About this RNA
mir-7 microRNA precursor family: an 87-nucleotide RNA from Cavia porcellus. About the family: This family represents the microRNA (miRNA) precursor mir-7. On this family, see Ambros, Cell 2001: "microRNAs: tiny regulators with great potential". The family's consensus secondary structure was predicted with PFOLD. Its family is annotated with miRNA-mediated post-transcriptional gene silencing and RISC complex in the Gene Ontology. The family has 132 seed sequences and 2,589 matches in Rfam 15.1.

[Rfam]
RNA sequence: UGGCCCAGCGCUGUGUGGAAGACUAGUGAUUUUGUUGUUCUGAUGUUGGAUGACAACAAGUCACAGCCGGCCACACAGCGCGGGCUC
Number, nucleotide and partner (000 for none) at each position: 001u000002g086003g085004c084005c083006c082007a000008g081009c080010g000011c078012u077013g076014u075015g074016u073017g072018g071019a000020a000021g068022a000023c066024u065025a000026g064027u063028g062029a061030u060031u059032u058033u000034g057035u056036u055037g054038u053039u052040c000041u000042g000043a000044u000045g000046u000047u000048g000049g000050a000051u000052g039053a038054c037055a036056a035057c034058a032059a031060g030061u029062c028063a027064c026065a024066g023067c000068c021069g000070g000071c018072c017073a016074c015075a014076c013077a012078g011079c000080g009081c008082g006083g005084g004085c003086u002087c000